[Rfam]
RNA sequence: UUAGCCCUAUCGCAACAGGGCAAGUGCAGGAGGCCGGUCAUGUUUAUCGAUAAUGUGGUAUUUGCCGGAGUGCUGACUGUGAGCCUCAUGGUGAUGUUUUUUGUAGGGUUUGGAAUUUUUAUCUGGAAAGACGCGAACAAGCGUAAAAAACCAUAGGUUUUUCCGGGUUACAUGAGCACGCAAGGCAUUUUGGGCGACUUCGGUCGCCCUUUUUUUGC
Numbered sequence: 001u002u003a004g005c006c007c008u009a010u011c012g013c014a015a016c017a018g019g020g021c022a023a024g025u026g027c028a029g030g031a032g033g034c035c036g037g038u039c040a041u042g043u044u045u046a047u048c049g050a051u052a053a054u055g056u057g058g059u060a061u062u063u064g065c066c067g068g069a070g071u072g073c074u075g076a077c078u079g080u081g082a083g084c085c086u087c088a089u090g091g092u093g094a095u096g097u098u099u100u101u102u103g104u105a106g107g108g109u110u111u112g113g114a115a116u117u118u119u120u121a122u123c124u125g126g127a128a129a130g131a132c133g134c135g136a137a138c139a140a141g142c143g144u145a146a147a148a149a150a151c152c153a154u155a156g157g158u159u160u161u162u163c164c165g166g167g168u169u170a171c172a173u174g175a176g177c178a179c180g181c182a183a184g185g186c187a188u189u190u191u192g193g194g195c196g197a198c199u200u201c202g203g204u205c206g207c208c209c210u211u212u213u214u215u216u217g218c
Stems, first nucleotide, its partner, number of pairs: 010106001012104002055065003083092003176186002179184001192209007